Notes:
c-di-GMP-I riboswitch aptamer: an 81-nucleotide RNA from Bacillus sp. 1NLA3E. The family's consensus secondary structure is taken from published work. About the family: GEMM was predicted in a large-scale screen for bacterial structured RNA regulatory elements. The source organism's lineage runs through Bacteria, Bacillati, Bacillota, Caryophanales and Bacillus.
[Rfam]
RNA sequence: GUCAGAUAAAGGCAAACUUAUUGAAAGAUAAGGACGCAAAGCCACAGGUCUAAGGAAAUCUAUGACGGCUGGGUUACCGAU
Number, nucleotide and partner (000 for none) at each position: 001g000002u000003c000004a000005g000006a000007u000008a000009a000010a000011g000012g037013c036014a000015a000016a000017c032018u031019u030020a029021u028022u027023g000024a000025a000026a000027g022028a021029u020030a019031a018032g017033g000034a000035c000036g013037c012038a000039a000040a075041g074042c073043c072044a000045c071046a070047g069048g066049u065050c064051u000052a000053a000054g000055g060056a000057a000058a000059u000060c055061u000062a000063u000064g050065a049066c048067g000068g000069c047070u046071g045072g043073g042074u041075u040076a000077c000078c000079g000080a000081u000
Its Rfam clan is "c-di-GMP_I riboswitch clan".